[Rfam]
This 73-nucleotide sequence from Entomoplasma freundtii belongs to the Rfam family "tRNA". Taxonomically the source falls in Entomoplasma (Bacteria, Mycoplasmatota, Entomoplasmatales, Entomoplasmataceae). The match comes from Rfam's covariance-model search (64 bits). Rfam classes the family as a transfer RNA.

RNA sequence: GGGGUGCUAGCUCAGUUGGGAGAGCUCCUGCCUUACAAGCAGGCGGUCAGCGGUUCGAGCCCGUUGCACCCCA
Numbered sequence: 001g002g003g004g005u006g007c008u009a010g011c012u013c014a015g016u017u018g019g020g021a022g023a024g025c026u027c028c029u030g031c032c033u034u035a036c037a038a039g040c041a042g043g044c045g046g047u048c049a050g051c052g053g054u055u056c057g058a059g060c061c062c063g064u065u066g067c068a069c070c071c072c073a
Stems, first nucleotide, its partner, number of pairs: 001072007010025004027043005049065005